[Rfam]
RNA: Cripavirus internal ribosome entry site (IRES)
RNA sequence: GAAAAUGUGUGAUCUGAUUAGAAGUAAGAAAAUUCCUAGUUAUAAUAUUUUUAAUACUGCUACAUUUUUAAGACCCUUAGUUAUUUAGCUUUACCGCCCAGGAUGGGGUGCAGCGUUCCUGCAAUAUCCAGGGCACCUAGGUGCAGCCUUGUAGUUUUAGUGGACUUUAGGCUAAAGAAUUUCACUAGCAAAUA
Numbered sequence: 001g002a003a004a005a006u007g008u009g010u011g012a013u014c015u016g017a018u019u020a021g022a023a024g025u026a027a028g029a030a031a032a033u034u035c036c037u038a039g040u041u042a043u044a045a046u047a048u049u050u051u052u053a054a055u056a057c058u059g060c061u062a063c064a065u066u067u068u069u070a071a072g073a074c075c076c077u078u079a080g081u082u083a084u085u086u087a088g089c090u091u092u093a094c095c096g097c098c099c100a101g102g103a104u105g106g107g108g109u110g111c112a113g114c115g116u117u118c119c120u121g122c123a124a125u126a127u128c129c130a131g132g133g134c135a136c137c138u139a140g141g142u143g144c145a146g147c148c149u150u151g152u153a154g155u156u157u158u159a160g161u162g163g164a165c166u167u168u169a170g171g172c173u174a175a176a177g178a179a180u181u182u183c184a185c186u187a188g189c190a191a192a193u194a
Stems, first nucleotide, its partner, number of pairs: 001069009017055008037141001073109005079090004096134004101129004110122004145173005151168001153166004157188006